[Rfam]
Shown here is a 78-nucleotide RNA sequence from Thermocoleostomius sinensis, a member of the family "Cyano-1 RNA". Lineage of the source: Bacteria > Oculatellales > Oculatellaceae > Thermocoleostomius > Thermocoleostomius sinensis.

RNA sequence: GGAUGUGUGAGGAGGAACGAAACAAAGCAAGCCCCUGGAGUCGAAACACGGACAGACGCCCAGGGGUUUUGUUUUUCA
Numbered sequence: 001g002g003a004u005g006u007g008u009g010a011g012g013a014g015g016a017a018c019g020a021a022a023c024a025a026a027g028c029a030a031g032c033c034c035c036u037g038g039a040g041u042c043g044a045a046a047c048a049c050g051g052a053c054a055g056a057c058g059c060c061c062a063g064g065g066g067u068u069u070u071g072u073u074u075u076u077c078a
Base pairs, nucleotide, nucleotide: 015074026073027072028071029070030069032066033065037061038060040057041056042055

Overview: The family's RNA type in Rfam is small RNA.